[Rfam]
RNA: mir-2066 microRNA precursor family
RNA sequence: GCCCCUGACUGCUGCAUCCUGCUGCCUUGGGGAAUAUCAACCACCAAGCAGCAGUGUGCAGUGGUGAGGGUG
Numbered sequence: 001g002c003c004c005c006u007g008a009c010u011g012c013u014g015c016a017u018c019c020u021g022c023u024g025c026c027u028u029g030g031g032g033a034a035u036a037u038c039a040a041c042c043a044c045c046a047a048g049c050a051g052c053a054g055u056g057u058g059c060a061g062u063g064g065u066g067a068g069g070g071u072g
Stems, first nucleotide, its partner, number of pairs: 004069003008065010019054007027047004031042002